[Rfam]
About this RNA:
The family of this 110-nucleotide RNA sequence from Desulfobacteraceae bacterium SEEP-SAG9 is "Group II catalytic intron D1-D4-4". Lineage of the source: Bacteria > Thermodesulfobacteriota > Desulfobacteria > Desulfobacterales > Desulfobacteraceae. Group II introns are found in rRNA, tRNA and mRNA of organelles in fungi, plants and protists, and also in mRNA in bacteria. Rfam 15.1 lists 840 matches to the family in 506 species. Its family is annotated with Group II intron splicing in the Gene Ontology.

RNA sequence: AAGGAGGUUACCCUGUUAAUUGCUCGUUCAGCAGGUAGCGAAGCGGGCGGCCCGCGGAGUAAUCCAAAGGGUCGAAGCCCCGCCGAGCGAACGUGUGAGCCGUAACGUAA
Numbered sequence: 001a002a003g004g005a006g007g008u009u010a011c012c013c014u015g016u017u018a019a020u021u022g023c024u025c026g027u028u029c030a031g032c033a034g035g036u037a038g039c040g041a042a043g044c045g046g047g048c049g050g051c052c053c054g055c056g057g058a059g060u061a062a063u064c065c066a067a068a069g070g071g072u073c074g075a076a077g078c079c080c081c082g083c084c085g086a087g088c089g090a091a092c093g094u095g096u097g098a099g100c101c102g103u104a105a106c107g108u109a110a
Base pairs, nucleotide, nucleotide: 012035013034014033015032016031043083044082045081046080047079048074049073050072051071052070053069057064058063087103088102089101